[Rfam]
RNA sequence: GCUACACGACAGGGGAGCUGGCGCACGCCGGCUGAGAAUGGGCCCCACGCGGCCCUGACCCAAUAACCUGAUCCGGGUAAUGCCGGCGUAGGGACCAGAGCACCGCAUGUU
Numbered sequence: 001g002c003u004a005c006a007c008g009a010c011a012g013g014g015g016a017g018c019u020g021g022c023g024c025a026c027g028c029c030g031g032c033u034g035a036g037a038a039u040g041g042g043c044c045c046c047a048c049g050c051g052g053c054c055c056u057g058a059c060c061c062a063a064u065a066a067c068c069u070g071a072u073c074c075g076g077g078u079a080a081u082g083c084c085g086g087c088g089u090a091g092g093g094a095c096c097a098g099a100g101c102a103c104c105g106c107a108u109g110u111u
Base pairs, nucleotide, nucleotide: 007098012061013060014059016056017032018031019030020029021028040054041053043051067092068091069090070089073086074085075084076083
About this RNA:
This 111-nucleotide RNA from Parafannyhessea umbonata belongs to the Rfam family "TPP riboswitch aptamer (THI element)". Vitamin B(1) in its active form thiamin pyrophosphate (TPP) is an essential coenzyme that is synthesised by coupling of pyrimidine and thiazole moieties in bacteria.